[Rfam]
The record is a 52-nucleotide sequence from Sphingomonas sp. Leaf33, which matches "chrB-b RNA" in Rfam. Rfam classes the family as a cis-regulatory element. The base pairs follow the family's consensus structure, which is taken from published work.
RNA sequence: CCGGGCCUGACAUGCGGACGCCCGGUCAGACGGCCUGCCGUCCAAGUUCCGC
Dot-bracket structure: ((((((.......[[[[[.))))))...(((((....))))).....]]]]]